The family of this 239-nucleotide RNA sequence from Streptomyces laurentii is "Streptomyces sRNA 4677". The family's RNA type in Rfam is small RNA. A search with the family's covariance model found it, with a score of 97 bits. The literature on the family includes a 2014 paper in PLoS One by Hindra et al., "Complex intra-operonic dynamics mediated by a small RNA in Streptomyces coelicolor". Located in the intergenic region between anti-sigma factor SCO4677 gene and a putative regulatory protein gene SCO4676. scr4677 expression requires the SCO4677 activity and scr4677 sRNA itself seem to affect the levels of the SCO4676-associated transcripts.
Nucleotides: 239
Base pairs, nucleotide, nucleotide: 005071007069008068084099085098086097087096088095089094114150116148117147118146174210175209176208177207178206180204181203185199186198187197188196221237222236223235224234225233
Number, partner (000 for none) and nucleotide at each position: 001000c002000g003000a004000c005071g006000c007069g008068g009000a010000u011000c012000c013000a014000c015000a016000c017000g018000a019000c020000g021000u022000a023000a024000a025000u026000g027000c028000g029000u030000a031000a032000g033000u034000a035000c036000u037000g038000c039000g040000g041000c042000g043000a044000g045000a046000a047000c048000c049000c050000u051000u052000c053000c054000c055000u056000u057000c058000c059000c060000c061000u062000c063000c064000a065000g066000c067000c068008u069007c070000c071005c072000c073000c074000c075000g076000g077000c078000c079000u080000u081000u082000c083000g084099u085098c086097a087096c088095c089094c090000a091000c092000a093000a094089g095088g096087g097086u098085g099084a100000u101000u102000u103000g104000g105000a106000g107000c108000a109000a110000c111000u112000g113000g114150g115000c116148u117147g118146g119000a120000u121000u122000c123000g124000g125000g126000g127000c128000g129000g130000c131000u132000u133000g134000u135000c136000g137000g138000g139000c140000a141000u142000a143000u144000g145000c146118u147117c148116g149000c150114c151000g152000c153000g154000a155000c156000a157000a158000c159000c160000c161000c162000a163000g164000c165000a166000c167000a168000u169000g170000c171000g172000u173000c174210g175209g176208c177207c178206c179000c180204c181203g182000g183000c184000c185199g186198g187197g188196a189000c190000u191000g192000c193000g194000a195000a196188u197187c198186c199185c200000g201000a202000u203181c204180g205000a206178g207177g208176g209175c210174c211000u212000g213000a214000c215000c216000a217000c218000c219000g220000a221237g222236g223235a224234a225233g226000g227000c228000u229000c230000a231000a232000a233225c234224u235223u236222c237221c238000c239000g
The pairing is the family consensus, mapped onto this sequence.